[Rfam]
RNA sequence: GAAGCAUCUGAGGUAGUUUGUAAUGCUGUCGACGCACUGUAAUGUCUACAUCAUUUCAACUGCCUCGGCUGUUUU
Numbered sequence: 001g002a003a004g005c006a007u008c009u010g011a012g013g014u015a016g017u018u019u020g021u022a023a024u025g026c027u028g029u030c031g032a033c034g035c036a037c038u039g040u041a042a043u044g045u046c047u048a049c050a051u052c053a054u055u056u057c058a059a060c061u062g063c064c065u066c067g068g069c070u071g072u073u074u075u
Stems, first nucleotide, its partner, number of pairs: 003073003010066008022055004027050003
RNA: mir-84 microRNA precursor family
Organism: Caenorhabditis remanei